RNA: Small nucleolar RNA snoR138
Organism: Triticum aestivum
RNA sequence: UGUGCCUCUUGAACAACCAUCUGCAGCUAUUUGUAUAUCUGCAUUUGGUUCAGACAGGGGGCACAUAACAAAUGCAAUCUUUUGAGGGAAUGGAUGUGUUUUCUGUUCAUCCAUUCUUAGAAUGAUUUUAACACUAAUUUGUUAUUGUGUACAAAU
Numbered sequence: 001u002g003u004g005c006c007u008c009u010u011g012a013a014c015a016a017c018c019a020u021c022u023g024c025a026g027c028u029a030u031u032u033g034u035a036u037a038u039c040u041g042c043a044u045u046u047g048g049u050u051c052a053g054a055c056a057g058g059g060g061g062c063a064c065a066u067a068a069c070a071a072a073u074g075c076a077a078u079c080u081u082u083u084g085a086g087g088g089a090a091u092g093g094a095u096g097u098g099u100u101u102u103c104u105g106u107u108c109a110u111c112c113a114u115u116c117u118u119a120g121a122a123u124g125a126u127u128u129u130a131a132c133a134c135u136a137a138u139u140u141g142u143u144a145u146u147g148u149g150u151a152c153a154a155a156u
Stems, first nucleotide, its partner, number of pairs: 003063005009057001015050005022043001024041003074150003081122003086117003090114001093111004098106001129144005